[Rfam]
RNA sequence: UGAGUGAAACACAGUCAAGGAACUCGGCAAUCUAACACCGUAACUUCGGGAUAAGGUGUGCCCAGAGUGUGUAGUGCCUUGCGCAUGAAGCAUGAAGGGUUGCAGAGAAGAGGGGGUAGCGACUGUUUAUCAAAAACACAGCACUACGCAAAAUCAUACGAUGAUGUAUGUGGUGUGACGCCUGCCCGGUGCUGGAAGGUUAAAAGGAGAGGUUAGCCGUAAGGCAAAGCUUUGAAUUGAAGCCCCAGUAAACGGCGGCCGUAACUAUAACGGUCCUAAGGUAGCGAAAUUCCUUGUCGGGUAAGUUCCGACCUGCACGAAUGGCGUAACGACUUCCCCGCUGUCUCGACUGUGUGCUCA
Numbered sequence: 001u002g003a004g005u006g007a008a009a010c011a012c013a014g015u016c017a018a019g020g021a022a023c024u025c026g027g028c029a030a031u032c033u034a035a036c037a038c039c040g041u042a043a044c045u046u047c048g049g050g051a052u053a054a055g056g057u058g059u060g061c062c063c064a065g066a067g068u069g070u071g072u073a074g075u076g077c078c079u080u081g082c083g084c085a086u087g088a089a090g091c092a093u094g095a096a097g098g099g100u101u102g103c104a105g106a107g108a109a110g111a112g113g114g115g116g117u118a119g120c121g122a123c124u125g126u127u128u129a130u131c132a133a134a135a136a137c138a139c140a141g142c143a144c145u146a147c148g149c150a151a152a153a154u155c156a157u158a159c160g161a162u163g164a165u166g167u168a169u170g171u172g173g174u175g176u177g178a179c180g181c182c183u184g185c186c187c188g189g190u191g192c193u194g195g196a197a198g199g200u201u202a203a204a205a206g207g208a209g210a211g212g213u214u215a216g217c218c219g220u221a222a223g224g225c226a227a228a229g230c231u232u233u234g235a236a237u238u239g240a241a242g243c244c245c246c247a248g249u250a251a252a253c254g255g256c257g258g259c260c261g262u263a264a265c266u267a268u269a270a271c272g273g274u275c276c277u278a279a280g281g282u283a284g285c286g287a288a289a290u291u292c293c294u295u296g297u298c299g300g301g302u303a304a305g306u307u308c309c310g311a312c313c314u315g316c317a318c319g320a321a322u323g324g325c326g327u328a329a330c331g332a333c334u335u336c337c338c339c340g341c342u343g344u345c346u347c348g349a350c351u352g353u354g355u356g357c358u359c360a
Stems, first nucleotide, its partner, number of pairs: 001360004009355008018346003035059005044049001060100004078094001080092003101105001113339004118334002120331002124138003141176008149166001153162003179326004184256003189253002191249005198244003204238002209233005216225002257275006276280001286313001296312006
This 360-nucleotide part of an RNA from uncultured bacterium Ak20-3 belongs to the Rfam family "Bacterial large subunit ribosomal RNA". It is one of the family's seed sequences.